Source information:
Shown here is an 81-nucleotide sequence from Menidia menidia, a member of the family "mir-26 microRNA precursor family". On this family, see Lagos-Quintana et al., Science 2001: "Identification of novel genes coding for small expressed RNAs". It scores 58 bits against the family's covariance model. Gene Ontology terms of the family: miRNA-mediated post-transcriptional gene silencing and RISC complex.

[Rfam]
RNA sequence: CUGCCACCAAGUGCAAGUAAUCAAGUAUAGGCCAGAGCAGCUGCAGAAAGCCUAUCCUGGAUUACUUGAACGAGGUUGCAG
Numbered sequence: 001c002u003g004c005c006a007c008c009a010a011g012u013g014c015a016a017g018u019a020a021u022c023a024a025g026u027a028u029a030g031g032c033c034a035g036a037g038c039a040g041c042u043g044c045a046g047a048a049a050g051c052c053u054a055u056c057c058u059g060g061a062u063u064a065c066u067u068g069a070a071c072g073a074g075g076u077u078g079c080a081g
Stems, first nucleotide, its partner, number of pairs: 002080003007075002011071002014068009024058002027055006